The family of this 78-nucleotide sequence from Acanthocheilonema viteae is "mir-1 microRNA precursor family". Its family is annotated with RISC complex and miRNA-mediated post-transcriptional gene silencing in the Gene Ontology. The source organism's lineage runs through Eukaryota, Bilateria, Protostomia, Ecdysozoa and Acanthocheilonema.
[Rfam]
RNA sequence: UUACGGGUUACAUACUUCUUUACAUUCCAUAGUUCUCAACAUUCUAUAUGGCAAUGCAAAGAAGUACGUUGCCAACGU
Numbered sequence: 001u002u003a004c005g006g007g008u009u010a011c012a013u014a015c016u017u018c019u020u021u022a023c024a025u026u027c028c029a030u031a032g033u034u035c036u037c038a039a040c041a042u043u044c045u046a047u048a049u050g051g052c053a054a055u056g057c058a059a060a061g062a063a064g065u066a067c068g069u070u071g072c073c074a075a076c077g078u
Base pairs, nucleotide, nucleotide: 007072008071010069011068013066014065015064016063017062018061019060020059021058023056024055025054027051028050029049030048031047
About the family: This family represents the microRNA (miRNA) mir-1 family. miRNAs are transcribed as ~70nt precursors (modelled here) and subsequently processed by the Dicer enzyme to give a ~22nt product. The literature on the family includes a 2001 paper in Science by Lee and Ambros, "An extensive class of small RNAs in Caenorhabditis elegans". Rfam 15.1 lists 4,474 matches to the family in 965 species.